[Rfam]
RNA sequence: CCUAGGUUUUAAUGAUAAAUGCGUAUAAUUUCGGGGAUAUGGCCCAGAGUUUCUACCAGACCGCCGUAAAUGGUCUGACUACGCAAAAUGUUUAUGAAUGA
Numbered sequence: 001c002c003u004a005g006g007u008u009u010u011a012a013u014g015a016u017a018a019a020u021g022c023g024u025a026u027a028a029u030u031u032c033g034g035g036g037a038u039a040u041g042g043c044c045c046a047g048a049g050u051u052u053c054u055a056c057c058a059g060a061c062c063g064c065c066g067u068a069a070a071u072g073g074u075c076u077g078a079c080u081a082c083g084c085a086a087a088a089u090g091u092u093u094a095u096g097a098a099u100g101a
Stems, first nucleotide, its partner, number of pairs: 020085006029048003033045003057077007